About this RNA:
This 54-nucleotide RNA sequence belongs to the Rfam family "eL15-Euryarchaeota ribosomal protein leader". The family's RNA type in Rfam is cis-regulatory leader.
RNA sequence: CGGGAUCGCUCCCGUCAAGGAAUGUGGCUUCAAUUCAGUAAGCCGAACCUGGAG
Numbered sequence: 001c002g003g004g005a006u007c008g009c010u011c012c013c014g015u016c017a018a019g020g021a022a023u024g025u026g027g028c029u030u031c032a033a034u035u036c037a038g039u040a041a042g043c044c045g046a047a048c049c050u051g052g053a054g
Stems, first nucleotide, its partner, number of pairs: 001014005018050003026044005